[Rfam]
RNA sequence: UGGCACCCAAUGUGGGUCCUGAGUACGAGGGGCCCAGUGAAGAACACCGAUCAGAGAUAAAAAGAAAAAUAAAGAAGUAGCGGCAAAGUUUAAAGAAUUUUCAGGGAGACAUUUAUGCGGGAAUCUGCUGCGUAGUCCAGGGCUCAGGUAAGUGAUCGGUGAUUAUGGGGCAGGAAAUAAGCCAGCAUCAGGCUUUUGUAAAUGGUCUAACAGAGACCUUAAGUGCAUGGGGAGUAAAGGUUAAGAAAAAGCAGUUAUUAGAAUUUUUUCAGUUCCUCCAUGAAGUUUGUCCUU
Numbered sequence: 001u002g003g004c005a006c007c008c009a010a011u012g013u014g015g016g017u018c019c020u021g022a023g024u025a026c027g028a029g030g031g032g033c034c035c036a037g038u039g040a041a042g043a044a045c046a047c048c049g050a051u052c053a054g055a056g057a058u059a060a061a062a063a064g065a066a067a068a069a070u071a072a073a074g075a076a077g078u079a080g081c082g083g084c085a086a087a088g089u090u091u092a093a094a095g096a097a098u099u100u101u102c103a104g105g106g107a108g109a110c111a112u113u114u115a116u117g118c119g120g121g122a123a124u125c126u127g128c129u130g131c132g133u134a135g136u137c138c139a140g141g142g143c144u145c146a147g148g149u150a151a152g153u154g155a156u157c158g159g160u161g162a163u164u165a166u167g168g169g170g171c172a173g174g175a176a177a178u179a180a181g182c183c184a185g186c187a188u189c190a191g192g193c194u195u196u197u198g199u200a201a202a203u204g205g206u207c208u209a210a211c212a213g214a215g216a217c218c219u220u221a222a223g224u225g226c227a228u229g230g231g232g233a234g235u236a237a238a239g240g241u242u243a244a245g246a247a248a249a250a251g252c253a254g255u256u257a258u259u260a261g262a263a264u265u266u267u268u269u270c271a272g273u274u275c276c277u278c279c280a281u282g283a284a285g286u287u288u289g290u291c292c293u294u
Stems, first nucleotide, its partner, number of pairs: 006031003012026003035049001037047002096144001098142001099140002108138001109136002116132005152171002156168003178221003181217001183215001229269007238256002241253001280293001282291002

Notes:
Shown here is a 294-nucleotide sequence from Suricata suricatta, a member of the family "Mason-Pfizer monkey virus packaging signal". The base pairs follow the family's consensus structure, which was predicted with PFOLD. Taxonomically the source falls in Suricata (Eukaryota, Vertebrata, Dipnotetrapodomorpha, Feliformia).